[Rfam]
RNA: int-alpA RNA
RNA sequence: GCCACGGCUAGGCCGGCCAGCCGAAAAGGGAUGCGCACCUAUCCCCUGCCGUGGCGCCUUAUCGGUG
Numbered sequence: 001g002c003c004a005c006g007g008c009u010a011g012g013c014c015g016g017c018c019a020g021c022c023g024a025a026a027a028g029g030g031a032u033g034c035g036c037a038c039c040u041a042u043c044c045c046c047u048g049c050c051g052u053g054g055c056g057c058c059u060u061a062u063c064g065g066u067g
Base pairs, nucleotide, nucleotide: 001055002054003053004052005051006050007049008048011022012021013020028045029044030043031042032041040067